RNA sequence: CUCUUAUCCAGAGCGGCGGAGGGACUAGGCCCAAUGAAGCCCGGCAACCUUCAAGGUAACCCCUUGAAAAGGUGCUAAUUCCUGCAGGUUAUAUUUAACCUGAAAGAUAAGAG
Numbered sequence: 001c002u003c004u005u006a007u008c009c010a011g012a013g014c015g016g017c018g019g020a021g022g023g024a025c026u027a028g029g030c031c032c033a034a035u036g037a038a039g040c041c042c043g044g045c046a047a048c049c050u051u052c053a054a055g056g057u058a059a060c061c062c063c064u065u066g067a068a069a070a071g072g073u074g075c076u077a078a079u080u081c082c083u084g085c086a087g088g089u090u091a092u093a094u095u096u097a098a099c100c101u102g103a104a105a106g107a108u109a110a111g112a113g
Stems, first nucleotide, its partner, number of pairs: 001113008013042001015041003021032003026084004043076004048072002050068006080105001085102006